[Rfam]
RNA: Small nucleolar RNA SNORA31
RNA sequence: AUGCAUCUGUUGACAGACCUGGAGCAGUUACCAUCUGCUGCUAAGUUUUCCACUACAGAUGAAAGAAAAAAAUCAUCCUUGCGCUUCCUAUUUGUCUGAUGUGGCAGCCAAAAUUGAAUAGAGGAAUACAAGG
Numbered sequence: 001a002u003g004c005a006u007c008u009g010u011u012g013a014c015a016g017a018c019c020u021g022g023a024g025c026a027g028u029u030a031c032c033a034u035c036u037g038c039u040g041c042u043a044a045g046u047u048u049u050c051c052a053c054u055a056c057a058g059a060u061g062a063a064a065g066a067a068a069a070a071a072a073u074c075a076u077c078c079u080u081g082c083g084c085u086u087c088c089u090a091u092u093u094g095u096c097u098g099a100u101g102u103g104g105c106a107g108c109c110a111a112a113a114u115u116g117a118a119u120a121g122a123g124g125a126a127u128a129c130a131a132g133g
Base pairs, nucleotide, nucleotide: 002063004061005060006059007058008057011052012051015049016048017047019045023039024038025037026036027035076125077124078123079122080121084116089111092107093106094105095104096103